Notes: A member of the RNA family "tRNA" from Heliornis fulica, 72 nucleotides long. The match comes from Rfam's covariance-model search (64 bits). NCBI's taxonomy places the organism under Eukaryota, Bilateria, Dinosauria, Saurischia, Heliornis.

[Rfam]
RNA sequence: GGGGAUGUAGCUCAGCGGGAGAGCGCUCGCUUUGCAUGUGAGAGGCCCUGGGUUCGACCCCCAGCAUCUCCA
Dot-bracket structure: (((((((..((((.......)))).(((((.......))))).....(((((.......)))))))))))).